A member of the RNA family "Ribosomal protein L19 leader" from Alkalihalophilus pseudofirmus, 39 nucleotides long. It is annotated as a cis-regulatory leader. NCBI's taxonomy places the organism under Bacteria, Bacillati, Caryophanales, Alkalihalophilus, Alkalihalophilus pseudofirmus. On this family, see Zengel and Lindahl, Prog Nucleic Acid Res Mol Biol 1994: "Diverse mechanisms for regulating ribosomal protein synthesis in Escherichia coli". This family is a putative r-protein leader autoregulatory structure found in B. subtilis and other low-GC Gram-positive bacteria. It is located in the 5' untranslated regions of mRNAs encoding ribosomal protein L19 (rplS). The family's consensus secondary structure was predicted with CMfinder.

[Rfam]
RNA sequence: ACGAUGUUCCGCUGCAGGAAAUUCUGAUAAGAGCAUCUG
Numbered sequence: 001a002c003g004a005u006g007u008u009c010c011g012c013u014g015c016a017g018g019a020a021a022u023u024c025u026g027a028u029a030a031g032a033g034c035a036u037c038u039g
Stems, first nucleotide, its partner, number of pairs: 003037007013029002015026004